Background: A member of the RNA family "Group II catalytic intron D1-D4-3" from Bacillus aquiflavi, 173 nucleotides long. The pairing is the family consensus, mapped onto this sequence. Group II introns are found in rRNA, tRNA and mRNA of organelles in fungi, plants and protists, and also in mRNA in bacteria.
RNA sequence: UCCAUUGUGAAAUGGAAUCUGAAGGAAGCUGGAAGCAAACUCCUGAACUGACGAACAGAAACUGCAUACAAGGCUGACUUGGAAUGGACGAGUCUGCCAAACAUGACAAAGUCCGAUACUGCACGAGUUCCAUACAGUAAAUGCAGCGGUUACAUGGGAGGAAAGUUAUAACU
Numbered sequence: 001u002c003c004a005u006u007g008u009g010a011a012a013u014g015g016a017a018u019c020u021g022a023a024g025g026a027a028g029c030u031g032g033a034a035g036c037a038a039a040c041u042c043c044u045g046a047a048c049u050g051a052c053g054a055a056c057a058g059a060a061a062c063u064g065c066a067u068a069c070a071a072g073g074c075u076g077a078c079u080u081g082g083a084a085u086g087g088a089c090g091a092g093u094c095u096g097c098c099a100a101a102c103a104u105g106a107c108a109a110a111g112u113c114c115g116a117u118a119c120u121g122c123a124c125g126a127g128u129u130c131c132a133u134a135c136a137g138u139a140a141a142u143g144c145a146g147c148g149g150u151u152a153c154a155u156g157g158g159a160g161g162a163a164a165g166u167u168a169u170a171a172c173u
Base pairs, nucleotide, nucleotide: 001016002015003014004013005012006011028173030171032169035166036165040160041159042158043157044156045155046151047150048149049148050147062146063145064144065143066142067141073138074137075136080132081131082130083129084128086114087113088112089111092107093106094105